[Rfam]
RNA sequence: UAAAGGCGAAUAGCGCAAGUACCCGCGAAGGCAGUCGUUAGGGUAGACGAGGUGAAGAGUGAUCGAAUAAUCAGCGGAUGCUCUUCCGGCACAUUCAUGUCGUAACAGAUACUAAAAAGCCCAUUGGUAACAAUGGAGACAAAGUGUAUCUGAAUGAAUUGU
Numbered sequence: 001u002a003a004a005g006g007c008g009a010a011u012a013g014c015g016c017a018a019g020u021a022c023c024c025g026c027g028a029a030g031g032c033a034g035u036c037g038u039u040a041g042g043g044u045a046g047a048c049g050a051g052g053u054g055a056a057g058a059g060u061g062a063u064c065g066a067a068u069a070a071u072c073a074g075c076g077g078a079u080g081c082u083c084u085u086c087c088g089g090c091a092c093a094u095u096c097a098u099g100u101c102g103u104a105a106c107a108g109a110u111a112c113u114a115a116a117a118a119g120c121c122c123a124u125u126g127g128u129a130a131c132a133a134u135g136g137a138g139a140c141a142a143a144g145u146g147u148a149u150c151u152g153a154a155u156g157a158a159u160u161g162u
Stems, first nucleotide, its partner, number of pairs: 020045005054086005063074001065072002087102005106152007121136006
Dot-bracket structure: ...................(((((................)))))........(((((....(.((....)).).......)))))(((((......)))))...(((((((........((((((....)))))).........)))))))..........